[Rfam]
RNA sequence: UUCCCAAUCCAAGCUAUAUCAUCCAGUCUUUUGAGAUCCUUAUCUCUCUCCAAACCACCAUCAAGAUGUCUCCCUGCUCUUGCAACUGCUGCUCCGGCAACUGCGCCUCUUGCUCUUGCUCCAGCUGCUCUGUAUGUCUCUUCACU
Numbered sequence: 001u002u003c004c005c006a007a008u009c010c011a012a013g014c015u016a017u018a019u020c021a022u023c024c025a026g027u028c029u030u031u032u033g034a035g036a037u038c039c040u041u042a043u044c045u046c047u048c049u050c051c052a053a054a055c056c057a058c059c060a061u062c063a064a065g066a067u068g069u070c071u072c073c074c075u076g077c078u079c080u081u082g083c084a085a086c087u088g089c090u091g092c093u094c095c096g097g098c099a100a101c102u103g104c105g106c107c108u109c110u111u112g113c114u115c116u117u118g119c120u121c122c123a124g125c126u127g128c129u130c131u132g133u134a135u136g137u138c139u140c141u142u143c144a145c146u
Stems, first nucleotide, its partner, number of pairs: 075099004082092003103128003112119002